[Rfam]
RNA sequence: GAAUAAUAGUGGCAUAACCGUUGAAAAGCGGUGACGCAAAGCCGUGGGUCUAACGGAUUACCUAUGACUGCCUGGUUGCUCUU
Numbered sequence: 001g002a003a004u005a006a007u008a009g010u011g012g013c014a015u016a017a018c019c020g021u022u023g024a025a026a027a028g029c030g031g032u033g034a035c036g037c038a039a040a041g042c043c044g045u046g047g048g049u050c051u052a053a054c055g056g057a058u059u060a061c062c063u064a065u066g067a068c069u070g071c072c073u074g075g076u077u078g079c080u081c082u083u
Base pairs, nucleotide, nucleotide: 012037013036017032018031019030020029021028022027040077041076042075043074046072047071048068049067050066055062056061
RNA: c-di-GMP-I riboswitch aptamer